The record is a 122-nucleotide RNA sequence from Alteribacillus bidgolensis, which matches "SAM riboswitch aptamer (S box leader)" in Rfam. A search with the family's covariance model found it, with a score of 84 bits.
RNA sequence: CUCUUAUCAUGAGAGGUGGAGGGACUGGCCCUUUGAAACCCGGCAACCAUCCAUGUAUUUUAUUAAACAAUGGAAAACGGUGCCAAAUCCUGCAAAGUGUAAUAUGCUUUGAGUGAUGAGAG
Numbered sequence: 001c002u003c004u005u006a007u008c009a010u011g012a013g014a015g016g017u018g019g020a021g022g023g024a025c026u027g028g029c030c031c032u033u034u035g036a037a038a039c040c041c042g043g044c045a046a047c048c049a050u051c052c053a054u055g056u057a058u059u060u061u062a063u064u065a066a067a068c069a070a071u072g073g074a075a076a077a078c079g080g081u082g083c084c085a086a087a088u089c090c091u092g093c094a095a096a097g098u099g100u101a102a103u104a105u106g107c108u109u110u111g112a113g114u115g116a117u118g119a120g121a122g
Stems, first nucleotide, its partner, number of pairs: 001122008013041001015040003021031003025092001027090002042084004047080002050075001052073001093111006
Gene Ontology term of the family: regulation of gene expression. About the family: The SAM riboswitch is found upstream of a number of genes which code for proteins involved in methionine or cysteine biosynthesis in Gram-positive bacteria. Lineage of the source: Bacteria > Bacillati > Bacillota > Bacillaceae > Alteribacillus.